Background: Rfam assigns this 188-nucleotide RNA from Anoxybacillus sp. B7M1 to the family "Lysine riboswitch aptamer". Lineage of the source: Bacteria > Bacillati > Bacillota > Bacilli > Anoxybacillus. It scores 128 bits against the family's covariance model. Rfam describes the family as follows. Riboswitches are metabolite binding domains within certain messenger RNAs that serve as precision sensors for their corresponding targets.
[Rfam]
RNA sequence: CGAUGAGGUAGAGGUUGCGGCUUUUAUGAGUACAGCGAACGAGAUGCAGAGAACAUUGAAGACUUCGCUCGAAAGGAAAAGCCGCCGAAGUUGGCACAUUUCUCUGGAUGUGCGAACUGGGGCUGUCACCGAAUAGGGGCAGCACUGUCACGGUUUGCGUAAAGCAACCGUGGGGCGCUAUCUUCACG
Numbered sequence: 001c002g003a004u005g006a007g008g009u010a011g012a013g014g015u016u017g018c019g020g021c022u023u024u025u026a027u028g029a030g031u032a033c034a035g036c037g038a039a040c041g042a043g044a045u046g047c048a049g050a051g052a053a054c055a056u057u058g059a060a061g062a063c064u065u066c067g068c069u070c071g072a073a074a075g076g077a078a079a080a081g082c083c084g085c086c087g088a089a090g091u092u093g094g095c096a097c098a099u100u101u102c103u104c105u106g107g108a109u110g111u112g113c114g115a116a117c118u119g120g121g122g123c124u125g126u127c128a129c130c131g132a133a134u135a136g137g138g139g140c141a142g143c144a145c146u147g148u149c150a151c152g153g154u155u156u157g158c159g160u161a162a163a164g165c166a167a168c169c170g171u172g173g174g175g176c177g178c179u180a181u182c183u184u185c186a187c188g
Stems, first nucleotide, its partner, number of pairs: 006183006017085009034069006089118004094113007119146002122143006129136001148173007
Dot-bracket structure: .....((((((.....(((((((((........((((((........................)))))).......)))))))))...((((.(((((((......))))))).))))((.((((((.(......).)))))).)).(((((((............)))))))....)))))).....